[Rfam]
RNA: ASpks TB sRNA
Nucleotides: 069
Stems, first nucleotide, its partner, number of pairs: 014026004031065001032059002037054003041050003
Number, partner (000 for none) and nucleotide at each position: 001000c002000u003000u004000g005000a006000u007000c008000g009000a010000a011000c012000c013000c014026a015025g016024c017023c018000a019000c020000a021000a022000c023017g024016g025015c026014u027000c028000g029000u030000c031065c032059c033058g034000g035000u036000c037054c038053u039052g040000g041050c042049c043048a044000u045000a046000g047000g048043u049042g050041g051000c052039c053038a054037g055000c056000a057000a058033u059032g060000c061000c062000u063000g064000c065031g066000c067000c068000u069000c